[Rfam]
RNA sequence: AACAACCGCUAGGGGAGCCUUAAAUAGAGGCUGAGAUUAAAGUGUGACUUUAAGACCCUUAUAACCUGAUCUGGAUGAUACCAGCGUAGGGAAGUGGCUACAGCAUGGU
Numbered sequence: 001a002a003c004a005a006c007c008g009c010u011a012g013g014g015g016a017g018c019c020u021u022a023a024a025u026a027g028a029g030g031c032u033g034a035g036a037u038u039a040a041a042g043u044g045u046g047a048c049u050u051u052a053a054g055a056c057c058c059u060u061a062u063a064a065c066c067u068g069a070u071c072u073g074g075a076u077g078a079u080a081c082c083a084g085c086g087u088a089g090g091g092a093a094g095u096g097g098c099u100a101c102a103g104c105a106u107g108g109u
Stems, first nucleotide, its partner, number of pairs: 006097005011059004017031005038052005065090004071084004
Rfam assigns this 109-nucleotide RNA sequence to the family "TPP riboswitch aptamer (THI element)". Vitamin B(1) in its active form thiamin pyrophosphate (TPP) is an essential coenzyme that is synthesised by coupling of pyrimidine and thiazole moieties in bacteria. The base pairs follow the family's consensus structure, which is taken from published work.